[Rfam]
RNA sequence: UUGAUCCUUCAAAAGAUACCUCAUAUAAAUUCGAGAAUAUGGCUCGAAAGUUUCUACCUAGCUACCGUAAACAGCUGGACUAUGAGGAGACGAUUUUUUUGU
Numbered sequence: 001u002u003g004a005u006c007c008u009u010c011a012a013a014a015g016a017u018a019c020c021u022c023a024u025a026u027a028a029a030u031u032c033g034a035g036a037a038u039a040u041g042g043c044u045c046g047a048a049a050g051u052u053u054c055u056a057c058c059u060a061g062c063u064a065c066c067g068u069a070a071a072c073a074g075c076u077g078g079a080c081u082a083u084g085a086g087g088a089g090a091c092g093a094u095u096u097u098u099u100u101g102u
Stems, first nucleotide, its partner, number of pairs: 019087007030048006058078006
Dot-bracket structure: ..................(((((((....((((((.......)))))).........((((((.........))))))..)))))))...............
The record is a 102-nucleotide RNA from Geomicrobium sp. JCM 19038, which matches "Purine riboswitch aptamer" in Rfam. A search with the family's covariance model found it, with a score of 88 bits. Pairs were carried over by alignment from the consensus structure, which is taken from published work.